[Rfam]
RNA: bZIP non canonical Hac1/Xbp1 intron
RNA sequence: CUCGACUCCGACUUGACACAAUAUCCUGCCGUGGUAUUGUGCGACCUGCAGUGUCAGUCGGUUUCGAG
Numbered sequence: 001c002u003c004g005a006c007u008c009c010g011a012c013u014u015g016a017c018a019c020a021a022u023a024u025c026c027u028g029c030c031g032u033g034g035u036a037u038u039g040u041g042c043g044a045c046c047u048g049c050a051g052u053g054u055c056a057g058u059c060g061g062u063u064u065c066g067a068g
Stems, first nucleotide, its partner, number of pairs: 001068005009060005020038006043055003